[Rfam]
RNA: ASpks TB sRNA
RNA sequence: CUUGACGGAGCCGAGCCAGAGGGGUUCGUCGCCCGGCCGGUCCUGGCCGUACGUGGCCAGCAGCGCCUGCGCCUC
Numbered sequence: 001c002u003u004g005a006c007g008g009a010g011c012c013g014a015g016c017c018a019g020a021g022g023g024g025u026u027c028g029u030c031g032c033c034c035g036g037c038c039g040g041u042c043c044u045g046g047c048c049g050u051a052c053g054u055g056g057c058c059a060g061c062a063g064c065g066c067c068u069g070c071g072c073c074u075c
Base pairs, nucleotide, nucleotide: 014026015025016024017023033069038065039064043060044059045058047056048055049054